[Rfam]
RNA sequence: UCGGUACCGGUUCACGUCCCUCUCGUCCGAGGCGGACGACCCGGCGCC
Number, nucleotide and partner (000 for none) at each position: 001u000002c000003g048004g047005u046006a000007c044008c043009g042010g041011u000012u000013c000014a000015c038016g037017u036018c035019c034020c000021u032022c031023u030024c000025g000026u000027c000028c000029g000030a023031g022032g021033c000034g019035g018036a017037c016038g015039a000040c000041c010042c009043g008044g007045c000046g005047c004048c003

This 48-nucleotide RNA sequence from Nocardioides islandensis belongs to the Rfam family "L31-Actinobacteria ribosomal protein leader". The family's RNA type in Rfam is cis-regulatory leader. The match comes from Rfam's covariance-model search (47 bits). Taxonomically the source falls in Nocardioides (Bacteria, Bacillati, Actinomycetota, Actinomycetes).